A member of the RNA family "msiK RNA" from Cellulomonas sp. B6, 59 nucleotides long. The family's RNA type in Rfam is cis-regulatory element. The family's consensus secondary structure is taken from published work. It scores 63 bits against the family's covariance model.
RNA sequence: CGUUGACACUCUUCACGACGGAUCGUCCGGCACGUACCUGCCGGUGAAGGGAUUGGCAC
Numbered sequence: 001c002g003u004u005g006a007c008a009c010u011c012u013u014c015a016c017g018a019c020g021g022a023u024c025g026u027c028c029g030g031c032a033c034g035u036a037c038c039u040g041c042c043g044g045u046g047a048a049g050g051g052a053u054u055g056g057c058a059c
Base pairs, nucleotide, nucleotide: 009051010050011049012048013047014046015045027044028043029042030041031040032039
The organism belongs to Cellulomonas, within Bacteria.